Eukaryotic small subunit ribosomal RNA: a 590-nucleotide part of an RNA from Volvox reticuliferus. The literature on the family includes a 2001 paper in Science by Yusupov et al., "Crystal structure of the ribosome at 5.5 A resolution". Clan: SSU clan. Lineage of the source: Eukaryota > Viridiplantae > Chlorophyceae > Volvocaceae > Volvox. The family has 90 seed sequences and 75,755 matches in Rfam 15.1.
Nucleotides: 590
Base pairs, nucleotide, nucleotide: 001579002578004577005576006575007574008573009572010571013451015449019444020411026409027408028407030406031405032404035066036065040064041063042062048057073364074363075362083285084284085283088280089279092278093277098273099272100271113148115146116145122138123137125135126134127133155174156173157172158171161168162167180233181232182231183230184229185228194221195220196219197218202210203209204208243266244265245264246263248262249261250260251259287335288334289333294326295325296324301323302322303321304320305319306318307317308316339361340360341359342358343354344353345352346351366387367386369384370383371382389400391398392397417442419441420440421439425437426436427435428434429433457486458485459484460482461481462480463479464478465477466476467475468474469473493513494512495510497509523569524568525567526566527565528564536563537562538561539560545552546551
Number, partner (000 for none) and nucleotide at each position: 001579g002578u003000c004577a005576u006575a007574u008573g009572c010571u011000u012000g013451u014000c015449u016000c017000a018000a019444a020411g021000a022000u023000u024000a025000a026409g027408c028407c029000a030406u031405g032404c033000a034000u035066g036065u037000c038000u039000a040064a041063g042062u043000a044000u045000a046000u047000c048057u049000u050000c051000g052000a053000u054000a055000c056000u057048g058000u059000g060000a061000a062042a063041c064040u065036g066035c067000g068000a069000a070000u071000g072000g073364c074363u075362c076000a077000u078000u079000a080000a081000a082000u083285c084284a085283g086000u087000u088280a089279u090000a091000g092278u093277u094000u095000a096000u097000u098273u099272g100271a101000u102000g103000g104000u105000a106000c107000u108000u109000a110000c111000u112000a113148c114000u115146c116145g117000g118000a119000u120000a121000a122138c123137u124000g125135u126134a127133g128000u129000a130000a131000u132000u133127c134126u135125a136000g137123a138122g139000c140000u141000a142000a143000u144000a145116c146115g147000u148113g149000c150000g151000c152000a153000c154000a155174a156173c157172c158171c159000g160000a161168c162167u163000u164000c165000a166000u167162g168161g169000a170000a171158g172157g173156g174155u175000c176000g177000u178000a179000u180233u181232u182231a183230u184229u185228a186000g187000a188000u189000a190000a191000a192000a193000a194221g195220c196219c197218a198000a199000u200000c201000g202210g203209g204208c205000u206000u207000u208204g209203c210202c211000c212000g213000u214000u215000c216000u217000a218197u219196g220195g221194u222000g223000a224000a225000u226000c227000a228185u229184g230183a231182u232181a233180a234000c235000u236000u237000c238000a239000c240000g241000a242000a243266u244265c245264g246263u247000a248262u249261g250260g251259c252000u253000g254000u255000u256000c257000a258000u259251g260250u261249c262248g263246a264245c265244g266243a267000u268000g269000u270000u271100u272099c273098a274000u275000u276000c277093a278092a279089a280088u281000u282000u283085c284084u285083g286000c287335c288334c289333u290000a291000u292000c293000a294326a295325c296324u297000u298000u299000c300000g301323a302322u303321g304320g305319u306318a307317g308316g309000a310000u311000a312000g313000a314000g315000g316308c317307c318306u319305a320304c321303c322302a323301u324296g325295g326294u327000g328000g329000u330000a331000a332000c333289g334288g335287g336000u337000g338000a339361c340360g341359g342358a343354g344353g345352a346351u347000c348000a349000g350000g351346g352345u353344u354343c355000g356000a357000u358342u359341c360340c361339g362075g363074a364073g365000a366387g367386g368000g369384a370383g371382c372000c373000u374000g375000a376000g377000a378000g379000a380000u381000g382371g383370c384369u385000a386367c387366c388000a389400c390000a391398u392397c393000c394000a395000a396000g397392g398391a399000a400389g401000g402000c403000a404032g405031c406030a407028g408027g409026c410000g411020c412000g413000c414000a415000a416000a417442u418000u419441a420440c421439c422000c423000a424000a425437u426436c427435c428434c429433g430000a431000c432000a433429c434428g435427g436426g437425g438000a439421g440420g441419u442417a443000g444019u445000g446000a447000c448000a449015a450000u451013a452000a453000a454000u455000a456000a457486c458485a459484a460482u461481a462480c463479u464478g465477g466476g467475u468474g469473c470000u471000u472000u473469g474468c475467a476466u477465c478464u479463g480462g481461u482460a483000a484459u485458u486457g487000g488000a489000a490000u491000g492000a493513g494512a495510a496000c497509g498000u499000u500000c501000u502000a503000a504000a505000u506000a507000c508000c509497c510495u511000a512494u513493c514000g515000a516000g517000g518000a519000u520000c521000c522000a523569u524568u525567g526566g527565a528564g529000g530000g531000c532000a533000a534000g535000u536563c537562u538561g539560g540000u541000g542000c543000c544000a545552g546551c547000a548000g549000c550000c551546g552545c553000g554000g555000u556000a557000a558000u559000u560539c561538c562537a563536g564528c565527u566526c567525c568524a569523a570000u571010a572009g573008c574007g575006u576005a577004u578002a579001u580000u581000u582000a583000a584000g585000u586000u587000g588000u589000u590000g